[Rfam]
RNA sequence: UAUUUCUGAUUUGCGCAGAGGCUGAAAAACUCGGAAAGUGUGUGUUGUCAUCAGCUUCGUCUCUUUGUUACUGUGAGAUGGGAGUUAAAUAACAGCACGACAUAG
Numbered sequence: 001u002a003u004u005u006c007u008g009a010u011u012u013g014c015g016c017a018g019a020g021g022c023u024g025a026a027a028a029a030c031u032c033g034g035a036a037a038g039u040g041u042g043u044g045u046u047g048u049c050a051u052c053a054g055c056u057u058c059g060u061c062u063c064u065u066u067g068u069u070a071c072u073g074u075g076a077g078a079u080g081g082g083a084g085u086u087a088a089a090u091a092a093c094a095g096c097a098c099g100a101c102a103u104a105g
Stems, first nucleotide, its partner, number of pairs: 041099007053086006060078004
RNA: Small nucleolar RNA snoR97